Annotation: The family of this 87-nucleotide RNA sequence from Radiobacillus deserti is "c-di-GMP-I riboswitch aptamer".
RNA sequence: UUGAAUACAAGGCAAAGUAUCUGAAAGGAUAUGGCGCAAAGCUAAAGGGGCUAACGUAUGCACAUACUAUGCCAGCCAGUUGCACUU
Numbered sequence: 001u002u003g004a005a006u007a008c009a010a011g012g013c014a015a016a017g018u019a020u021c022u023g024a025a026a027g028g029a030u031a032u033g034g035c036g037c038a039a040a041g042c043u044a045a046a047g048g049g050g051c052u053a054a055c056g057u058a059u060g061c062a063c064a065u066a067c068u069a070u071g072c073c074a075g076c077c078a079g080u081u082g083c084a085c086u087u
Stems, first nucleotide, its partner, number of pairs: 012037002017032006040081004047077002049073003056067004
The match comes from Rfam's covariance-model search (70 bits).